[Rfam]
RNA sequence: ACGGGAAACCGACCAGAACCCUGGGCAGGGGCGGGGGAACCAGGUUUGUUGCCGUCUCCCCACGGCUUGGGGUGAAGCCGCCCGAGCGGAAUCGUUUCCGCGUACGGCGGCCGGGCCACCUCCCGGUCCGAACCCGACAGCUCACCUCGCAGGCGUACGGAGAGGGACC
Numbered sequence: 001a002c003g004g005g006a007a008a009c010c011g012a013c014c015a016g017a018a019c020c021c022u023g024g025g026c027a028g029g030g031g032c033g034g035g036g037g038a039a040c041c042a043g044g045u046u047u048g049u050u051g052c053c054g055u056c057u058c059c060c061c062a063c064g065g066c067u068u069g070g071g072g073u074g075a076a077g078c079c080g081c082c083c084g085a086g087c088g089g090a091a092u093c094g095u096u097u098c099c100g101c102g103u104a105c106g107g108c109g110g111c112c113g114g115g116c117c118a119c120c121u122c123c124c125g126g127u128c129c130g131a132a133c134c135c136g137a138c139a140g141c142u143c144a145c146c147u148c149g150c151a152g153g154c155g156u157a158c159g160g161a162g163a164g165g166g167a168c169c
Stems, first nucleotide, its partner, number of pairs: 010155002013153002019030003031150006041069006070135003078110004113129004
Source information:
A member of the RNA family "c-di-AMP riboswitch aptamer (ydaO/yuaA leader)", 169 nucleotides long.